Rfam assigns this 96-nucleotide RNA sequence from Alistipes sp. AF17-16 to the family "TPP riboswitch aptamer (THI element)". A reference for the family is Miranda-Rios et al. (2001), "A conserved RNA structure (thi box) is involved in regulation of thiamin biosynthetic gene expression in bacteria", Proc Natl Acad Sci U S A. The organism belongs to Alistipes, within Bacteria.
RNA sequence: GAAGGAAGACGGGGGUGCCGCAGAACCGGCGGCUGAGAUCAAACCCCAACACCUGAUACGGUUAAUACCGUCGGAGGGAGUUUUUCCAAAGGAUAG
Numbered sequence: 001g002a003a004g005g006a007a008g009a010c011g012g013g014g015g016u017g018c019c020g021c022a023g024a025a026c027c028g029g030c031g032g033c034u035g036a037g038a039u040c041a042a043a044c045c046c047c048a049a050c051a052c053c054u055g056a057u058a059c060g061g062u063u064a065a066u067a068c069c070g071u072c073g074g075a076g077g078g079a080g081u082u083u084u085u086c087c088a089a090a091g092g093a094u095a096g
Stems, first nucleotide, its partner, number of pairs: 006084005011047004016041001017033005052077003058071004